[Rfam]
The family of this 127-nucleotide sequence from Nannospalax galili is "Small nucleolar RNA SNORA63". It scores 115 bits against the family's covariance model. E3 belongs to the H/ACA class of snoRNAs and is involved in the processing of eukaryotic pre-rRNA and has regions of complementarity to 18S rRNA. E3 is encoded in introns in the gene for protein synthesis initiation factor 4AII. Gene Ontology terms of the family: nucleolus and RNA processing.

RNA sequence: AAGUAGGAUUUAAGUACAAUAUAGCUGUUCAGUGCUAUGUUGUUCUCCCUCCUCAAACAGUGUUAUUUCUUAACUAUACCUAUCUGCUAGACACCUGUAGUAGCCAGGGACGCUUGGUUUCAUACAU
Numbered sequence: 001a002a003g004u005a006g007g008a009u010u011u012a013a014g015u016a017c018a019a020u021a022u023a024g025c026u027g028u029u030c031a032g033u034g035c036u037a038u039g040u041u042g043u044u045c046u047c048c049c050u051c052c053u054c055a056a057a058c059a060g061u062g063u064u065a066u067u068u069c070u071u072a073a074c075u076a077u078a079c080c081u082a083u084c085u086g087c088u089a090g091a092c093a094c095c096u097g098u099a100g101u102a103g104c105c106a107g108g109g110a111c112g113c114u115u116g117g118u119u120u121c122a123u124a125c126a127u
Stems, first nucleotide, its partner, number of pairs: 003052001005050003016043010079108003084103004